The family of this 111-nucleotide sequence from Nocardioides pocheonensis is "TPP riboswitch aptamer (THI element)".
The family's consensus secondary structure is taken from published work.
Rfam 15.1 lists 16,130 matches to the family in 8,693 species.

[Rfam]
RNA sequence: GACAUCCACCACGGGAGCCCGCGGCAGUGGGCUGAGAAGGAGCUGGAGCCGCUCCGACCGUCGAACCUGAUCCGGGUCAUGCCGGCGAAGGAAGCGAGGAGCUUGCUGUGU
Numbered sequence: 001g002a003c004a005u006c007c008a009c010c011a012c013g014g015g016a017g018c019c020c021g022c023g024g025c026a027g028u029g030g031g032c033u034g035a036g037a038a039g040g041a042g043c044u045g046g047a048g049c050c051g052c053u054c055c056g057a058c059c060g061u062c063g064a065a066c067c068u069g070a071u072c073c074g075g076g077u078c079a080u081g082c083c084g085g086c087g088a089a090g091g092a093a094g095c096g097a098g099g100a101g102c103u104u105g106c107u108g109u110g111u
Base pairs, nucleotide, nucleotide: 006099007098009096011061012060013059014058017032018031019030020029021028039055040054041053042052043051066091067090068089072085073084074083075082